[Rfam]
RNA: 6A RNA
RNA sequence: GAUUCUCCUCGUAGAGCAUGAGGAGUUAAAUCAAAAGAAAGCUCACUGAGA
Numbered sequence: 001g002a003u004u005c006u007c008c009u010c011g012u013a014g015a016g017c018a019u020g021a022g023g024a025g026u027u028a029a030a031u032c033a034a035a036a037g038a039a040a041g042c043u044c045a046c047u048g049a050g051a
Stems, first nucleotide, its partner, number of pairs: 006024006014044004